[Rfam]
Nucleotides: 149
Stems, first nucleotide, its partner, number of pairs: 020049007028041001058089005067078004095138006107124007
Number, partner (000 for none) and nucleotide at each position: 001000g002000u003000c004000u005000c006000a007000a008000u009000u010000u011000g012000a013000g014000c015000g016000c017000c018000a019000g020049a021048a022047c023046u024045c025044a026043u027000g028041c029000c030000g031000g032000a033000u034000c035000c036000g037000c038000a039000c040000u041028g042000a043026a044025u045024g046023a047022g048021u049020u050000g051000a052000c053000g054000a055000g056000g057000u058089c059088a060087g061086g062085g063000a064000g065000u066000a067078u068077c069076g070075a071000a072000a073000g074000u075070u076069c077068g078067g079000c080000g081000g082000a083000u084000g085062c086061c087060c088059u089058g090000g091000a092000a093000u094000a095138u096137c097136g098135a099134u100133u101000u102000g103000a104000a105000a106000a107124a108123g109122g110121g111120g112119g113118a114000g115000u116000g117000a118113u119112c120111c121110c122109c123108u124107u125000c126000a127000c128000a129000a130000a131000g132000a133100a134099a135098u136097c137096g138095a139000a140000a141000u142000a143000a144000u145000c146000a147000u148000a149000u

Shown here is a 149-nucleotide RNA sequence from Pseudoramibacter alactolyticus, a member of the family "glmS glucosamine-6-phosphate activated ribozyme aptamer".
Lineage of the source: Bacteria > Bacillati > Bacillota > Pseudoramibacter > Pseudoramibacter alactolyticus.
Rfam links the family to the GO terms regulation of gene expression and catalytic activity.
About the family: This entry contains a glucosamine-6-phosphate activated ribozyme that is found in the mRNA for GlmS. GlmS is an enzyme that uses fructose-6-phosphate and glutamine to generate glucosamine-6-phosphate. The ribozyme catalyses self cleavage of the glmS mRNA that is thought to regulate GlmS activity.
A search with the family's covariance model found it, with a score of 86 bits.